[Rfam]
Background: This 93-nucleotide RNA sequence from Echinops telfairi belongs to the Rfam family "G-CSF factor stem-loop destabilising element (SLDE)". The literature on the family includes a 2002 paper in Mol Cell Biol by Putland et al., "RNA destabilization by the granulocyte colony-stimulating factor stem-loop destabilizing element involves a single stem-loop that promotes deadenylation". The family's consensus secondary structure is taken from published work. Rfam's curators write: This family represents the granulocyte colony-stimulating factor stem-loop destabilising element (G-CSF SLDE). G-CSF is secreted by fibroblasts and endothelial cells in response to the inflammatory mediators interleukin-1 (IL-1) and tumour necrosis factor alpha and by activated macrophages. The synthesis of G-CSF is regulated both transcriptionally and through control of mRNA stability. In unstimulated cells G-CSF mRNA is unstable but becomes stabilised in response to IL-1 or tumour necrosis factor alpha, and also in the case of monocytes and macrophages, in response to lipopolysaccharide. Its family is annotated with nuclear-transcribed mRNA poly(A) tail shortening in the Gene Ontology. The sequence is in the family's curated seed alignment. It is annotated as a cis-regulatory element.
RNA sequence: CUGAGGGUGCCCACCUUGGGGCCCUUGGGAGCAGCAGGUCUCCCACGUGGGAGACAAGCCACCCUGUUUAAUAUUUAAACGGCAGUGUUCCCU
Number, nucleotide and partner (000 for none) at each position: 001c000002u000003g026004a025005g024006g023007g022008u021009g000010c020011c019012c018013a000014c000015c000016u000017u000018g012019g011020g010021g008022c007023c006024c005025u004026u003027g000028g000029g000030a000031g000032c000033a000034g059035c058036a000037g000038g055039u054040c053041u052042c051043c050044c049045a000046c000047g000048u000049g044050g043051g042052a041053g040054a039055c038056a000057a000058g035059c034060c000061a000062c000063c000064c082065u081066g080067u079068u078069u077070a076071a075072u000073a000074u000075u071076u070077a069078a068079a067080c066081g065082g064083c000084a000085g000086u000087g000088u000089u000090c000091c000092c000093u000